[Rfam]
RNA sequence: AGAGUGUUAUGAUGUUGGAAUAGUAUUCCGAGUCUAGCUCAGCGCUACCCCUUGAUUUUUUCAAGGGGU
Numbered sequence: 001a002g003a004g005u006g007u008u009a010u011g012a013u014g015u016u017g018g019a020a021u022a023g024u025a026u027u028c029c030g031a032g033u034c035u036a037g038c039u040c041a042g043c044g045c046u047a048c049c050c051c052u053u054g055a056u057u058u059u060u061u062c063a064a065g066g067g068g069u
Base pairs, nucleotide, nucleotide: 002040003039004038005037011034012033013032017029018028019027020026021025047069048068049067050066051065052064053063054062055061

Shown here is a 69-nucleotide sequence from Enterococcus italicus, a member of the family "L17 ribosomal protein downstream element".
Taxonomically the source falls in Enterococcus italicus (Bacteria, Bacillota, Bacilli, Enterococcaceae).
It is annotated as a cis-regulatory element.
It scores 57 bits against the family's covariance model.